[Rfam]
RNA sequence: GAGUCUUUUUGGGAACAGUGCAAAUCUGUACCGGCGGUUAUAGUCCGCGAGCGAAAGCUGAAUUGGUUUAAUUCCAAUACCGAUGGUUAAAGUCCAGAUGGGAAAGAAGAAUU
Numbered sequence: 001g002a003g004u005c006u007u008u009u010u011g012g013g014a015a016c017a018g019u020g021c022a023a024a025u026c027u028g029u030a031c032c033g034g035c036g037g038u039u040a041u042a043g044u045c046c047g048c049g050a051g052c053g054a055a056a057g058c059u060g061a062a063u064u065g066g067u068u069u070a071a072u073u074c075c076a077a078u079a080c081c082g083a084u085g086g087u088u089a090a091a092g093u094c095c096a097g098a099u100g101g102g103a104a105a106g107a108a109g110a111a112u113u
Stems, first nucleotide, its partner, number of pairs: 004110007016028003030093002032082002034048004043080002051058002062078005084096003
Shown here is a 113-nucleotide RNA from Mycoplasma marinum, a member of the family "FMN riboswitch aptamer (RFN element)". The match comes from Rfam's covariance-model search (91 bits).